[Rfam]
RNA sequence: UUGUCAUUUUAAGCGCCAGAACUUGCGAAAUGCAUCCUAGUCUUAUGUUUGCUGCGUCAUUCGGUCUAAUCGUCCCCCAAUCGGCGGACGGGUUCUUACUCUUUUUAGACAACGCAGAGGCAAAGUCCAGCGAUGAUUUCCAAGUUGACGAGGUGAAGGUGUUCGAAGCAUUCGGCGGGGGCCUUCCGGUGUGAUCCAAACCGUUAAGUCGAAACACAAAACGUCCGGGCGACCGGGCCGACAAAGGUUCGACGGGGUCAGGC
Numbered sequence: 001u002u003g004u005c006a007u008u009u010u011a012a013g014c015g016c017c018a019g020a021a022c023u024u025g026c027g028a029a030a031u032g033c034a035u036c037c038u039a040g041u042c043u044u045a046u047g048u049u050u051g052c053u054g055c056g057u058c059a060u061u062c063g064g065u066c067u068a069a070u071c072g073u074c075c076c077c078c079a080a081u082c083g084g085c086g087g088a089c090g091g092g093u094u095c096u097u098a099c100u101c102u103u104u105u106u107a108g109a110c111a112a113c114g115c116a117g118a119g120g121c122a123a124a125g126u127c128c129a130g131c132g133a134u135g136a137u138u139u140c141c142a143a144g145u146u147g148a149c150g151a152g153g154u155g156a157a158g159g160u161g162u163u164c165g166a167a168g169c170a171u172u173c174g175g176c177g178g179g180g181g182c183c184u185u186c187c188g189g190u191g192u193g194a195u196c197c198a199a200a201c202c203g204u205u206a207a208g209u210c211g212a213a214a215c216a217c218a219a220a221a222c223g224u225c226c227g228g229g230c231g232a233c234c235g236g237g238c239c240g241a242c243a244a245a246g247g248u249u250c251g252a253c254g255g256g257g258u259c260a261g262g263c
Base pairs, nucleotide, nucleotide: 020146021145022144023143024142025141027139029137155186156185157184158183159182163175164174165173166172187203188202189201190200192198208253209252210251211250212249213248223238224237225236226235227234228233
A member of the RNA family "glmS glucosamine-6-phosphate activated ribozyme aptamer" from Paenibacillus cremeus, 263 nucleotides long. The family's RNA type in Rfam is riboswitch. Its family is annotated with catalytic activity and regulation of gene expression in the Gene Ontology. About the family: This entry contains a glucosamine-6-phosphate activated ribozyme that is found in the mRNA for GlmS. GlmS is an enzyme that uses fructose-6-phosphate and glutamine to generate glucosamine-6-phosphate. The ribozyme catalyses self cleavage of the glmS mRNA that is thought to regulate GlmS activity. A search with the family's covariance model found it, with a score of 77 bits. The source organism's lineage runs through Bacteria, Bacillati, Bacilli, Paenibacillaceae and Paenibacillus. A reference for the family is Winkler et al. (2004), "Control of gene expression by a natural metabolite-responsive ribozyme", Nature. Pairs were carried over by alignment from the consensus structure, which is taken from published work.